[Rfam]
Rfam assigns this 103-nucleotide RNA from Acetoanaerobium sticklandii to the family "SAM riboswitch aptamer (S box leader)".
Taxonomically the source falls in Acetoanaerobium sticklandii (Bacteria, Clostridia, Peptostreptococcales, Filifactoraceae).
RNA sequence: UGCUUAUCAAGAUUGGUGGAGGGACUGGCCCUACGAAACCAGGCAAGGGUUUUAUAUAAAACCGAGUGCUAAUUCCAGCAGACAAUAGUCUGAGAGAUAAGUG
Numbered sequence: 001u002g003c004u005u006a007u008c009a010a011g012a013u014u015g016g017u018g019g020a021g022g023g024a025c026u027g028g029c030c031c032u033a034c035g036a037a038a039c040c041a042g043g044c045a046a047g048g049g050u051u052u053u054a055u056a057u058a059a060a061a062c063c064g065a066g067u068g069c070u071a072a073u074u075c076c077a078g079c080a081g082a083c084a085a086u087a088g089u090c091u092g093a094g095a096g097a098u099a100a101g102u103g
Stems, first nucleotide, its partner, number of pairs: 001103008013041001015040003021031003025078004042070004049062004074095001079092005